mir-8364 microRNA precursor family: a 61-nucleotide RNA sequence from Pristionchus pacificus. The match comes from Rfam's covariance-model search (69 bits). Rfam links the family to the GO terms RISC complex and miRNA-mediated post-transcriptional gene silencing. NCBI's taxonomy places the organism under Eukaryota, Bilateria, Nematoda, Rhabditida, Pristionchus.
RNA sequence: UCCUCGUUUUGCAUACUCUCUCGUAUGUCUGAUCGGCGAGAGAGUAUGCAAAAUGAGGAGA
Number, nucleotide and partner (000 for none) at each position: 001u059002c058003c057004u056005c055006g054007u053008u000009u000010u050011g000012c048013a047014u046015a045016c044017u043018c000019u041020c040021u039022c038023g000024u000025a000026u000027g000028u000029c000030u000031g000032a000033u000034c000035g000036g000037c000038g022039a021040g020041a019042g000043a017044g016045u015046a014047u013048g012049c000050a010051a000052a000053a007054u006055g005056a004057g003058g002059a001060g000061a000